[Rfam]
mir-156 microRNA precursor family: a 90-nucleotide sequence from Dendrobium catenatum. This family represents the plant microRNA (miRNA) precursor mir-156. The organism belongs to Dendrobium, within Eukaryota. The literature on the family includes a 2002 paper in Genes Dev by Reinhart et al., "MicroRNAs in plants". Gene Ontology terms of the family: RISC complex and miRNA-mediated post-transcriptional gene silencing. A search with the family's covariance model found it, with a score of 85 bits.
Nucleotides: 090
Base pairs, nucleotide, nucleotide: 001090002089003088004087005086006085007084008083010080011079012078013077014076015075016074017073018072019071020070021069023067024066025065
Number, partner (000 for none) and nucleotide at each position: 001090g002089u003088g004087a005086c006085a007084g008083a009000a010080g011079a012078g013077a014076g015075u016074g017073a018072g019071c020070a021069c022000a023067u024066a025065u026000g027000g028000u029000g030000c031000u032000u033000u034000c035000u036000u037000g038000u039000a040000u041000g042000g043000g044000a045000u046000g047000g048000a049000a050000a051000u052000c053000a054000u055000g056000c057000u058000u059000g060000g061000a062000g063000c064000u065025a066024u067023a068000u069021g070020u071019g072018c073017u074016c075015a076014c077013u078012c079011u080010c081000u082000c083008u084007c085006u086005g087004u088003c089002a090001u